[Rfam]
RNA: Plant signal recognition particle RNA
RNA sequence: GCCGAGCUGGGUCGCGCUAGCUUAUAACUCAAGUGAGGGCACUAAGAUGGUCGGACUGCAGUUCGGCCCACUUGGUAGGGCUGAUGUGGUGCAUUUCGCUGGCUUGCCCGGUCCAAGUCAUGAGUCGGGCCAUGUGACUCUAGCGAAGGUUUGGGCCACGUGGUUCCUAGAGAGGAGGGCACCGCGUGAGGCUGGUUUCACAGAGCAGCGCAAACCUCCCGCUCAUGACAGUGGAAGGAUUACGAGCCCUGGCGCACCCUCAGCCCAUAUUGCCCGGUGGGCCGUCCUUGGUUGGACAACCAUCUUU
Numbered sequence: 001g002c003c004g005a006g007c008u009g010g011g012u013c014g015c016g017c018u019a020g021c022u023u024a025u026a027a028c029u030c031a032a033g034u035g036a037g038g039g040c041a042c043u044a045a046g047a048u049g050g051u052c053g054g055a056c057u058g059c060a061g062u063u064c065g066g067c068c069c070a071c072u073u074g075g076u077a078g079g080g081c082u083g084a085u086g087u088g089g090u091g092c093a094u095u096u097c098g099c100u101g102g103c104u105u106g107c108c109c110g111g112u113c114c115a116a117g118u119c120a121u122g123a124g125u126c127g128g129g130c131c132a133u134g135u136g137a138c139u140c141u142a143g144c145g146a147a148g149g150u151u152u153g154g155g156c157c158a159c160g161u162g163g164u165u166c167c168u169a170g171a172g173a174g175g176a177g178g179g180c181a182c183c184g185c186g187u188g189a190g191g192c193u194g195g196u197u198u199c200a201c202a203g204a205g206c207a208g209c210g211c212a213a214a215c216c217u218c219c220c221g222c223u224c225a226u227g228a229c230a231g232u233g234g235a236a237g238g239a240u241u242a243c244g245a246g247c248c249c250u251g252g253c254g255c256a257c258c259c260u261c262a263g264c265c266c267a268u269a270u271u272g273c274c275c276g277g278u279g280g281g282c283c284g285u286c287c288u289u290g291g292u293u294g295g296a297c298a299a300c301c302a303u304c305u306u307u
Stems, first nucleotide, its partner, number of pairs: 001040003004023007028037003044306008053297001056294001059290002061287001064284003068280005074274004078266007089257003094251001101248006108238002112235004117229009127166010138155003142151003167172001174219005184211004192203003
Dot-bracket structure: ((((((((((......)))))))....(((....))))))...((((((((.(..(..(((..(((.(((((.(((((((((((....(((..(......((((((.((..((((.(((((((((.((((((((((.(((.(((....))).))).))))))))))(....).(((((.....((((....(((......)))....))))...))))).)))))))))..)))).))....))))))..)...)))..)))))))....)))).))))).)))..).))...)..).)))))))).